[Rfam]
RNA sequence: GAUCGACUCUCUGGAGACACCCGGACACGACGAGCCGGGGGCCGAAGGUGCAAGAUGCGUGCAUGCACGCAGGAAUCUCUCAGGCAAAUGGACAGAGAAGAUAUC
Numbered sequence: 001g002a003u004c005g006a007c008u009c010u011c012u013g014g015a016g017a018c019a020c021c022c023g024g025a026c027a028c029g030a031c032g033a034g035c036c037g038g039g040g041g042c043c044g045a046a047g048g049u050g051c052a053a054g055a056u057g058c059g060u061g062c063a064u065g066c067a068c069g070c071a072g073g074a075a076u077c078u079c080u081c082a083g084g085c086a087a088a089u090g091g092a093c094a095g096a097g098a099a100g101a102u103a104u105c
Stems, first nucleotide, its partner, number of pairs: 008098006020039004041085003044081002048079001050077001
The record is a 105-nucleotide RNA sequence from Roseburia sp. AM16-25, which matches "Glycine riboswitch aptamer" in Rfam. NCBI's taxonomy places the organism under Bacteria, Bacillati, Bacillota, Lachnospiraceae, Roseburia. Its family is annotated with glycine biosynthetic process in the Gene Ontology. The pairing is the family consensus, mapped onto this sequence.